The record is a 97-nucleotide sequence from Paenibacillus anaericanus, which matches "Guanidine-I riboswitch aptamer" in Rfam.
[Rfam]
RNA sequence: UUAAAUGUUUUCUAGGGUUCCGCAACACAUGUUGGUCUGGUCCGAGAGAAAACUCACAGCUACGGCUGUGUCACGGAGGGAUAAAAGCCUGGGAGGA
Numbered sequence: 001u002u003a004a005a006u007g008u009u010u011u012c013u014a015g016g017g018u019u020c021c022g023c024a025a026c027a028c029a030u031g032u033u034g035g036u037c038u039g040g041u042c043c044g045a046g047a048g049a050a051a052a053c054u055c056a057c058a059g060c061u062a063c064g065g066c067u068g069u070g071u072c073a074c075g076g077a078g079g080g081a082u083a084a085a086a087g088c089c090u091g092g093g094a095g096g097a
Stems, first nucleotide, its partner, number of pairs: 007053006015043002020040002022037001023034004055070006072092001074095001078090003

Gene Ontology term of the family: regulation of gene expression. The source organism's lineage runs through Bacteria, Bacillati, Caryophanales, Paenibacillaceae and Paenibacillus.